[Rfam]
RNA sequence: ACCACUGAGCCAUCUCUCCAGCCCCCAAGUUAUCUAUUUUUAAGAUUUUAUUAUCCGUGGGGCUGGAGAGAUGGCUCAGCAGU
Numbered sequence: 001a002c003c004a005c006u007g008a009g010c011c012a013u014c015u016c017u018c019c020a021g022c023c024c025c026c027a028a029g030u031u032a033u034c035u036a037u038u039u040u041u042a043a044g045a046u047u048u049u050a051u052u053a054u055c056c057g058u059g060g061g062g063c064u065g066g067a068g069a070g071a072u073g074g075c076u077c078a079g080c081a082g083u
Stems, first nucleotide, its partner, number of pairs: 002082001005079020
Rfam assigns this 83-nucleotide sequence from Nannospalax galili to the family "mir-3473 microRNA precursor family". The match comes from Rfam's covariance-model search (73 bits). Gene Ontology terms of the family: cellular response to mechanical stimulus, RISC complex and miRNA-mediated post-transcriptional gene silencing. Pairs were carried over by alignment from the consensus structure, which was predicted with RNAalifold.